Streptomyces-metH RNA: a 120-nucleotide RNA from Streptomyces sp. GS7. It is annotated as a small RNA. The source organism's lineage runs through Bacteria, Actinomycetota, Kitasatosporales, Streptomycetaceae and Streptomyces.
RNA sequence: CUGUCCACGGCGUGGAACGGGGAACACCUGUCCCGUGCCCGGCAGCUACGCUGGCCGGGUGCGCCCUCUCCAGGAGGGUGCAAAGCCGACAGCCGUCGCAACCACGGGAGCACCUCCAUG
Numbered sequence: 001c002u003g004u005c006c007a008c009g010g011c012g013u014g015g016a017a018c019g020g021g022g023a024a025c026a027c028c029u030g031u032c033c034c035g036u037g038c039c040c041g042g043c044a045g046c047u048a049c050g051c052u053g054g055c056c057g058g059g060u061g062c063g064c065c066c067u068c069u070c071c072a073g074g075a076g077g078g079u080g081c082a083a084a085g086c087c088g089a090c091a092g093c094c095g096u097c098g099c100a101a102c103c104a105c106g107g108g109a110g111c112a113c114c115u116c117c118a119u120g
Base pairs, nucleotide, nucleotide: 060082061081062080063079065077066076067075068074085099086098088097089096090095